The record is a 126-nucleotide RNA sequence from Propithecus coquereli, which matches "Small nucleolar RNA SNORA11" in Rfam. For this family Rfam cites "A novel experimental approach for systematic identification of box H/ACA snoRNAs from eukaryotes" (Gu et al., Nucleic Acids Res, 2005). It scores 75 bits against the family's covariance model. Lineage of the source: Eukaryota > Eumetazoa > Gnathostomata > Lemuriformes > Propithecus. About the family: U107 (SNORA11) is a member of the H/ACA class of snoRNAs that guide the sites of modification of uridines to pseudouridines. This snoRNA was identified by RT-PCR from blood cells and its expression confirmed by Northern blot analysis. There is no predicted target for this guide snRNA.
[Rfam]
RNA sequence: UUGUGACUAGAUAGAAAAAUGAUAGAAGAGUUUAGUUUUUUUACAACACACCCAACAAGAAUCUGGGGUCAUUGUGAUGAGGGGCACAAAACUUGUGGUCUCCCUGUGAACAAAUGCCCUACCCAU
Numbered sequence: 001u002u003g004u005g006a007c008u009a010g011a012u013a014g015a016a017a018a019a020u021g022a023u024a025g026a027a028g029a030g031u032u033u034a035g036u037u038u039u040u041u042u043a044c045a046a047c048a049c050a051c052c053c054a055a056c057a058a059g060a061a062u063c064u065g066g067g068g069u070c071a072u073u074g075u076g077a078u079g080a081g082g083g084g085c086a087c088a089a090a091a092c093u094u095g096u097g098g099u100c101u102c103c104c105u106g107u108g109a110a111c112a113a114a115u116g117c118c119c120u121a122c123c124c125a126u
Base pairs, nucleotide, nucleotide: 002050003049004048005047010042013041014040015039016038017037018036020034021032022031023030066119067118068117069116073112074111075110078108079107081101082100083099085097086096087095088094089093